[Rfam]
RNA sequence: GGUAUUGGGGUUGAGCUCCUUAAAGUCCAAGAGAGGUUCUAGCUGGUUAGAUAGAGCUGCUGAGUUAUGGAUUCCACAGUUCUAUCUCUUGUUUAAAGAAAGAAAGAUAGGGUUGUGGUGUGCAUACUUCUGGAGCUUUAUAUAACCCUUGUUAGAUCCUUGUUUGGAUUGAAGGGAGCUCCACACCAUCCCCCU
Numbered sequence: 001g002g003u004a005u006u007g008g009g010g011u012u013g014a015g016c017u018c019c020u021u022a023a024a025g026u027c028c029a030a031g032a033g034a035g036g037u038u039c040u041a042g043c044u045g046g047u048u049a050g051a052u053a054g055a056g057c058u059g060c061u062g063a064g065u066u067a068u069g070g071a072u073u074c075c076a077c078a079g080u081u082c083u084a085u086c087u088c089u090u091g092u093u094u095a096a097a098g099a100a101a102g103a104a105a106g107a108u109a110g111g112g113u114u115g116u117g118g119u120g121u122g123c124a125u126a127c128u129u130c131u132g133g134a135g136c137u138u139u140a141u142a143u144a145a146c147c148c149u150u151g152u153u154a155g156a157u158c159c160u161u162g163u164u165u166g167g168a169u170u171g172a173a174g175g176g177a178g179c180u181c182c183a184c185a186c187c188a189u190c191c192c193c194c195u
Base pairs, nucleotide, nucleotide: 013181014180015179016178017177018176019175020174024170025169026168027167028166029165036158057135058134060132062130066126067125068124069123074118